Annotation: Shown here is a 215-nucleotide RNA sequence from Oncorhynchus kisutch, a member of the family "Small nucleolar RNA U3". Pairs were carried over by alignment from the consensus structure, which is taken from published work. It is annotated as a C/D-box small nucleolar RNA. Its Rfam clan is "U3 clan". Small nucleolar RNAs (snoRNAs) are involved in the processing and modification of rRNA in the nucleolus. A reference for the family is Zwieb (1997), "The uRNA database", Nucleic Acids Res.
RNA sequence: AAGACUAUACUUUCAGGGAUCAUUUCUAUAGUGCGUUACUUGAGAAAUGUGUGUUUAAUGUGGUAGAUCUCGCUACCAUGAUGACGAUUCAAGAUAUUUCCCAUUCAGAGCAUGAAUUGGUGGUUAGAAAUGACUUUGCUCAUUUUUCUUCCACCUUUGAUGACUGUUCCUUGUUCUUCAAUGAACGUGGAUGAAGGGAAUAUGUUCUGAGUGGA
Numbered sequence: 001a002a003g004a005c006u007a008u009a010c011u012u013u014c015a016g017g018g019a020u021c022a023u024u025u026c027u028a029u030a031g032u033g034c035g036u037u038a039c040u041u042g043a044g045a046a047a048u049g050u051g052u053g054u055u056u057a058a059u060g061u062g063g064u065a066g067a068u069c070u071c072g073c074u075a076c077c078a079u080g081a082u083g084a085c086g087a088u089u090c091a092a093g094a095u096a097u098u099u100c101c102c103a104u105u106c107a108g109a110g111c112a113u114g115a116a117u118u119g120g121u122g123g124u125u126a127g128a129a130a131u132g133a134c135u136u137u138g139c140u141c142a143u144u145u146u147u148c149u150u151c152c153a154c155c156u157u158u159g160a161u162g163a164c165u166g167u168u169c170c171u172u173g174u175u176c177u178u179c180a181a182u183g184a185a186c187g188u189g190g191a192u193g194a195a196g197g198g199a200a201u202a203u204g205u206u207c208u209g210a211g212u213g214g215a
Base pairs, nucleotide, nucleotide: 001041002040003039006035008033009032010031011030015027016026017025018024050065051064054063055062076214077213078212079211094203095202096201097200098199099198100197101196104195105194106193107192110167111166112165119155120154121153122152127147128146129144130143131142132141133140170189172187173186174185175184176183